MIR1222 microRNA precursor family: a 134-nucleotide RNA sequence from Physcomitrium patens. Lineage of the source: Eukaryota > Viridiplantae > Streptophytina > Bryophytina > Physcomitrium. The sequence is in the family's curated seed alignment. Its family is annotated with miRNA-mediated post-transcriptional gene silencing and RISC complex in the Gene Ontology.

RNA sequence: GACUGUGCGUCGAUGCAACUGCUCUAAUCAUUUUCGUACCAGUGUAUUCCUUCAAACCUCUUCUCUUGACUGUAGUGGUGGCCUGAAGGAGUUCAUUGGUACACAAAUCUUGAGAGCAUGGAGGAAAAUAGAGU
Numbered sequence: 001g002a003c004u005g006u007g008c009g010u011c012g013a014u015g016c017a018a019c020u021g022c023u024c025u026a027a028u029c030a031u032u033u034u035c036g037u038a039c040c041a042g043u044g045u046a047u048u049c050c051u052u053c054a055a056a057c058c059u060c061u062u063c064u065c066u067u068g069a070c071u072g073u074a075g076u077g078g079u080g081g082c083c084u085g086a087a088g089g090a091g092u093u094c095a096u097u098g099g100u101a102c103a104c105a106a107a108u109c110u111u112g113a114g115a116g117c118a119u120g121g122a123g124g125a126a127a128a129u130a131g132a133g134u
Stems, first nucleotide, its partner, number of pairs: 020118005027111001030108004036102009046092009057080001059078002065075001